[Rfam]
RNA: Bacterial large subunit ribosomal RNA, nucleotides 619 to 850
Organism: Clostridiaceae bacterium 14S0207
RNA sequence: GAGUUACGGUAUGUAGCAAGGUUAAGUACCGCAGGUACGAAGCCGAAGAGAAAUCGAGUCUGAAUAGGGCGCAUAGUUGCAUAUCGUAGACCCGAAACCGGGUGACCUAUCCAUGGCCAGGAUGAAGCGGAAGUAAAAUUCCGUGGAGGUCCGAACCACGUUGGUGUUGAAAAACCAUGGGAUGAGCUGUGGAUAGCGGAGAAAUUCCAAUCGAACCCGGAGAUAGCUGGUU
Numbered sequence: 001g002a003g004u005u006a007c008g009g010u011a012u013g014u015a016g017c018a019a020g021g022u023u024a025a026g027u028a029c030c031g032c033a034g035g036u037a038c039g040a041a042g043c044c045g046a047a048g049a050g051a052a053a054u055c056g057a058g059u060c061u062g063a064a065u066a067g068g069g070c071g072c073a074u075a076g077u078u079g080c081a082u083a084u085c086g087u088a089g090a091c092c093c094g095a096a097a098c099c100g101g102g103u104g105a106c107c108u109a110u111c112c113a114u115g116g117c118c119a120g121g122a123u124g125a126a127g128c129g130g131a132a133g134u135a136a137a138a139u140u141c142c143g144u145g146g147a148g149g150u151c152c153g154a155a156c157c158a159c160g161u162u163g164g165u166g167u168u169g170a171a172a173a174a175c176c177a178u179g180g181g182a183u184g185a186g187c188u189g190u191g192g193a194u195a196g197c198g199g200a201g202a203a204a205u206u207c208c209a210a211u212c213g214a215a216c217c218c219g220g221a222g223a224u225a226g227c228u229g230g231u232u
Stems, first nucleotide, its partner, number of pairs: 005088013020044004026038003048055002058070004091230002094227001098220006107196011118184001120152004127144006156181002159179001162177004198208003